[Rfam]
RNA sequence: GGUUUGUAGGCAGUGUAGUUAGCUGAUUGUAUACAUUGUGUCACAAUCACUAACUUUGCUGCCAUCAAAAC
Numbered sequence: 001g002g003u004u005u006g007u008a009g010g011c012a013g014u015g016u017a018g019u020u021a022g023c024u025g026a027u028u029g030u031a032u033a034c035a036u037u038g039u040g041u042c043a044c045a046a047u048c049a050c051u052a053a054c055u056u057u058g059c060u061g062c063c064a065u066c067a068a069a070a071c
Stems, first nucleotide, its partner, number of pairs: 003069004009063002012060004017055006024049007